tRNA: a 73-nucleotide sequence from Globodera rostochiensis. The family's consensus secondary structure is taken from published work. Rfam classes the family as a transfer RNA.
RNA sequence: GCCCCGGUAGCUCAGUUGGAAGAGCUGCCCACGGAUUGGGUGGAGGGCGUGGGUUCGAGUCCCACCCGGGGCU
Numbered sequence: 001g002c003c004c005c006g007g008u009a010g011c012u013c014a015g016u017u018g019g020a021a022g023a024g025c026u027g028c029c030c031a032c033g034g035a036u037u038g039g040g041u042g043g044a045g046g047g048c049g050u051g052g053g054u055u056c057g058a059g060u061c062c063c064a065c066c067c068g069g070g071g072c073u
Stems, first nucleotide, its partner, number of pairs: 001072007010025004049065005

The organism belongs to Globodera, within Eukaryota. Rfam describes the family as follows. Transfer RNA (tRNA) molecules are approximately 80 nucleotides in length. Their secondary structure includes four short double-helical elements and three loops (D, anti-codon, and T loops). Further hydrogen bonds mediate the characteristic L-shaped molecular structure. tRNAs have two regions of fundamental functional importance: the anti-codon, which is responsible for specific mRNA codon recognition, and the 3' end, to which the tRNAs corresponding amino acid is attached (by aminoacyl-tRNA synthetases). tRNAs cope with the degeneracy of the genetic code in two manners: having more than one tRNA (with a specific anti-codon) for a particular amino acid; and 'wobble' base-pairing, i.e. permitting non-standard base-pairing at the 3rd anti-codon position.